[Rfam]
RNA sequence: CUGUGCUAGAUGGGGAGCUGGCGGUGCCCUGCACCCGCAAUCCGCCACAGCGGGAUCGAAUUCCCCCUCUAGAUAUGGUCCUUUCGCCUCUAUCCAUAAGCGGUAAUGUAGACGACUGGGCCCUACGCGACGGUGCACUGUGAACCCCGCCAGGCCUGGAAGGGAGCAACGGUAAGCAGAGAGCACUGGGUGCCGAAGGAAUACCUGGUUUGAGUUGUCGUUUGAGGAUAUGCGGGAGGCUCACUAUCAAAAGGGGGUGCACAG
Numbered sequence: 001c002u003g004u005g006c007u008a009g010a011u012g013g014g015g016a017g018c019u020g021g022c023g024g025u026g027c028c029c030u031g032c033a034c035c036c037g038c039a040a041u042c043c044g045c046c047a048c049a050g051c052g053g054g055a056u057c058g059a060a061u062u063c064c065c066c067c068u069c070u071a072g073a074u075a076u077g078g079u080c081c082u083u084u085c086g087c088c089u090c091u092a093u094c095c096a097u098a099a100g101c102g103g104u105a106a107u108g109u110a111g112a113c114g115a116c117u118g119g120g121c122c123c124u125a126c127g128c129g130a131c132g133g134u135g136c137a138c139u140g141u142g143a144a145c146c147c148c149g150c151c152a153g154g155c156c157u158g159g160a161a162g163g164g165a166g167c168a169a170c171g172g173u174a175a176g177c178a179g180a181g182a183g184c185a186c187u188g189g190g191u192g193c194c195g196a197a198g199g200a201a202u203a204c205c206u207g208g209u210u211u212g213a214g215u216u217g218u219c220g221u222u223u224g225a226g227g228a229u230a231u232g233c234g235g236g237a238g239g240c241u242c243a244c245u246a247u248c249a250a251a252a253g254g255g256g257g258u259g260c261a262c263a264g
Stems, first nucleotide, its partner, number of pairs: 001264006009057003012030004017025003034054005063257006072248004078241001080239008091230002094227002097224003102219002105216003114210007122199003126195002128190001131188005136181001138179004147172003155164003